[Rfam]
RNA: Hovlinc ribozyme (hominin vlincRNA-located)
Organism: Oryctolagus cuniculus
RNA sequence: ACCUGGAGUAAGCCCAGGAGCAUAGUGCUUCAGAGCUAAUGUACUUACCCAAGAUGAGUGUUCCUCUCUCUUAAAACACUAACUCAUGAUUCUCAUGACCUGUGUGUGGAGAGAUCUGGACUAGGAGUUAGGAGACCUCUGACUUUGCCAAACCAUACUAAUA
Numbered sequence: 001a002c003c004u005g006g007a008g009u010a011a012g013c014c015c016a017g018g019a020g021c022a023u024a025g026u027g028c029u030u031c032a033g034a035g036c037u038a039a040u041g042u043a044c045u046u047a048c049c050c051a052a053g054a055u056g057a058g059u060g061u062u063c064c065u066c067u068c069u070c071u072u073a074a075a076a077c078a079c080u081a082a083c084u085c086a087u088g089a090u091u092c093u094c095a096u097g098a099c100c101u102g103u104g105u106g107u108g109g110a111g112a113g114a115u116c117u118g119g120a121c122u123a124g125g126a127g128u129u130a131g132g133a134g135a136c137c138u139c140u141g142a143c144u145u146u147g148c149c150a151a152a153c154c155a156u157a158c159u160a161a162u163a
Stems, first nucleotide, its partner, number of pairs: 011159002017153001025146001027144001030142006040074001044125004053065001067114006084098006099134001101132001103130002107126001